[Rfam]
RNA sequence: AGAGGUGGCAAGCUUAUGUUUACGGGCAAACACACGAAAAAAAGAAAUCUUAUGAUUCCUUUUUAUUUUACCCGUGGGAAGGUCUGAGAAAAGCCACAAUGUCCUUACGGGAUAACUCACGAAAGUGAGUGUAAGCUACCAGUAAAUUUGGUCUCAAGCCAAUGAUGUACCCCAAAGACGACGAUCUUCUUUCGGGAGGAUCGUAAGAAUGGUGGGUAAUACUUGGGAUCAUUGAAACGGCUUGCAGGUGGAAGUACUAUACAGUGCAAUACAUAAGAACCAAAGUCUUGUGCUUUGGGAUAACUCGAUUCAGACUACUCUGCCUCCUCU
Numbered sequence: 001a002g003a004g005g006u007g008g009c010a011a012g013c014u015u016a017u018g019u020u021u022a023c024g025g026g027c028a029a030a031c032a033c034a035c036g037a038a039a040a041a042a043a044g045a046a047a048u049c050u051u052a053u054g055a056u057u058c059c060u061u062u063u064u065a066u067u068u069u070a071c072c073c074g075u076g077g078g079a080a081g082g083u084c085u086g087a088g089a090a091a092a093g094c095c096a097c098a099a100u101g102u103c104c105u106u107a108c109g110g111g112a113u114a115a116c117u118c119a120c121g122a123a124a125g126u127g128a129g130u131g132u133a134a135g136c137u138a139c140c141a142g143u144a145a146a147u148u149u150g151g152u153c154u155c156a157a158g159c160c161a162a163u164g165a166u167g168u169a170c171c172c173c174a175a176a177g178a179c180g181a182c183g184a185u186c187u188u189c190u191u192u193c194g195g196g197a198g199g200a201u202c203g204u205a206a207g208a209a210u211g212g213u214g215g216g217u218a219a220u221a222c223u224u225g226g227g228a229u230c231a232u233u234g235a236a237a238c239g240g241c242u243u244g245c246a247g248g249u250g251g252a253a254g255u256a257c258u259a260u261a262c263a264g265u266g267c268a269a270u271a272c273a274u275a276a277g278a279a280c281c282a283a284a285g286u287c288u289u290g291u292g293c294u295u296u297g298g299g300a301u302a303a304c305u306c307g308a309u310u311c312a313g314a315c316u317a318c319u320c321u322g323c324c325u326c327c328u329c330u
Base pairs, nucleotide, nucleotide: 001330002329003328004327008323009322010321013277014276015275016274017273018272019271022075023074024073025072026071044059084313085312086311087310088309094251095250096249097248100114101113102112103111104110115130116129117128118127119126120125131245132244133243134242135241136240137239150230151229152228153227154226155225156224157223158222278301280299281298283296284295

Source information
The family of this 330-nucleotide sequence from Apophysomyces ossiformis is "Nuclear RNase P". Its Rfam clan is "RNaseP clan". Ribonuclease P (RNase P) is a ubiquitous endoribonuclease, found in archaea, bacteria and eukarya as well as chloroplasts and mitochondria. Its best characterised activity is the generation of mature 5'-ends of tRNAs by cleaving the 5'-leader elements of precursor-tRNAs. Cellular RNase Ps are ribonucleoproteins. RNA from bacterial RNase Ps retains its catalytic activity in the absence of the protein subunit, i.e. it is a ribozyme. NCBI's taxonomy places the organism under Eukaryota, Fungi, Mucoromycota, Mucorales, Apophysomyces. A reference for the family is Xiao et al. (2002), "Eukaryotic Ribonuclease P: A Plurality of Ribonucleoprotein Enzymes", Annu Rev Biochem. It is annotated as a ribozyme.